Source information:
Rfam assigns this 57-nucleotide RNA sequence from Banara guianensis to the family "Plastid-psbA-3 3UTR RNA". On this family, see Richter et al., Plant Commun 2023: "Retrograde signaling in plants: A critical review focusing on the GUN pathway and beyond". The source organism's lineage runs through Eukaryota, Spermatophyta, Gunneridae, Pentapetalae and Banara. From the family's description: Plastid psbA-3 is a non-coding RNA (ncRNA) present in plastids. It was identified in inverted repeat sequences in the 3 prime untranslate region (3UTR) of photosystem II quinone-binding protein (psbA). Its Rfam clan is "Plastid-psbA 3UTR RNA clan". By type it is a cis-regulatory element.
[Rfam]
RNA sequence: AAAAGGAGCAAUGCCAAUUUCUUGUUCUAUCAAGAGGGUUGACAUUGCUCCUUUUUU
Numbered sequence: 001a002a003a004a005g006g007a008g009c010a011a012u013g014c015c016a017a018u019u020u021c022u023u024g025u026u027c028u029a030u031c032a033a034g035a036g037g038g039u040u041g042a043c044a045u046u047g048c049u050c051c052u053u054u055u056u057u
Base pairs, nucleotide, nucleotide: 002054003053004052005051006050007049008048009047010046011045012044014041019036020035021034022033023032024031